The record is a 93-nucleotide RNA from Bactrocera dorsalis, which matches "mir-282 microRNA precursor family" in Rfam. The family's consensus secondary structure was predicted with RNAalifold. The family has 21 seed sequences and 136 matches in Rfam 15.1. A search with the family's covariance model found it, with a score of 84 bits.
RNA sequence: UCUUGGACUGAAUCUAGCCUCUACUAGGCUUUGUCUGUGUGAGUUUAAAGAAUAUCAGACAUAGCCUAAAAGAGGUUAGGUGAAACAGGAACA
Numbered sequence: 001u002c003u004u005g006g007a008c009u010g011a012a013u014c015u016a017g018c019c020u021c022u023a024c025u026a027g028g029c030u031u032u033g034u035c036u037g038u039g040u041g042a043g044u045u046u047a048a049a050g051a052a053u054a055u056c057a058g059a060c061a062u063a064g065c066c067u068a069a070a071a072g073a074g075g076u077u078a079g080g081u082g083a084a085a086c087a088g089g090a091a092c093a
Stems, first nucleotide, its partner, number of pairs: 012081009027066004032061005